[Rfam]
This 53-nucleotide RNA from filamentous cyanobacterium CCP2 belongs to the Rfam family "Nitrogen stress-induced RNA 1".
The pairing is the family consensus, mapped onto this sequence.
Rfam 15.1 lists 962 matches to the family in 163 species.

RNA sequence: UAGUAGAUGCACCCUGAUUUGAAAGCUCCUGGUUGACGCUGGGAGCUUUUUAU
Number, nucleotide and partner (000 for none) at each position: 001u000002a000003g012004u011005a000006g000007a000008u000009g000010c000011a004012c003013c000014c000015u000016g000017a000018u000019u000020u000021g000022a000023a000024a000025g000026c045027u044028c043029c042030u041031g040032g039033u038034u000035g000036a000037c000038g033039c032040u031041g030042g029043g028044a027045g026046c000047u000048u000049u000050u000051u000052a000053u000

By type it is a small RNA.